The family of this 65-nucleotide RNA is "Streptomyces RNA 2736". By type it is a small RNA. About the family: Identified by deep sequencing of transcriptome at the end of exponential growth phase. Appears smaller on northern blot than sequencing transcript. This indicates processing step. Streptomyces specific.

[Rfam]
RNA sequence: CGCCCCGGUUCGGGUCCCGUGGGGGGAAUCCGUUCCGGGGAAAGGAAAGCGCCCCGACCGUCGAC
Numbered sequence: 001c002g003c004c005c006c007g008g009u010u011c012g013g014g015u016c017c018c019g020u021g022g023g024g025g026g027a028a029u030c031c032g033u034u035c036c037g038g039g040g041a042a043a044g045g046a047a048a049g050c051g052c053c054c055c056g057a058c059c060g061u062c063g064a065c
Stems, first nucleotide, its partner, number of pairs: 001063002003040005011032005016026003044053002
Dot-bracket structure: (((((((...((((((((.....))).)))))...)))))...((......))........))..